[Rfam]
RNA sequence: GCAGAACUGUGUGCACAGGUUUCCAUCUGUGACUGGUGGUGCGCUCUGUUUGUGUUUUACAUUCAGGCUGCACUGCUCACACAAAACCUGCGGCCAAAGAUGAACCUGAGAUCAUAGUACUGGCCUAGUGAUGUCUGAAGGACAAGCCUCCCACUGGCCAGCCUCCACACUCUCAAACACCU
Numbered sequence: 001g002c003a004g005a006a007c008u009g010u011g012u013g014c015a016c017a018g019g020u021u022u023c024c025a026u027c028u029g030u031g032a033c034u035g036g037u038g039g040u041g042c043g044c045u046c047u048g049u050u051u052g053u054g055u056u057u058u059a060c061a062u063u064c065a066g067g068c069u070g071c072a073c074u075g076c077u078c079a080c081a082c083a084a085a086a087c088c089u090g091c092g093g094c095c096a097a098a099g100a101u102g103a104a105c106c107u108g109a110g111a112u113c114a115u116a117g118u119a120c121u122g123g124c125c126u127a128g129u130g131a132u133g134u135c136u137g138a139a140g141g142a143c144a145a146g147c148c149u150c151c152c153a154c155u156g157g158c159c160a161g162c163c164u165c166c167a168c169a170c171u172c173u174c175a176a177a178c179a180c181c182u
Base pairs, nucleotide, nucleotide: 013091014090015089030083031082034079035078036077037075038074039073040072041071042070045067046066047065048064051061052060053059107175108174109173110172111171120161121160122159123158124157125156127155128154129153130152132146133143134142135141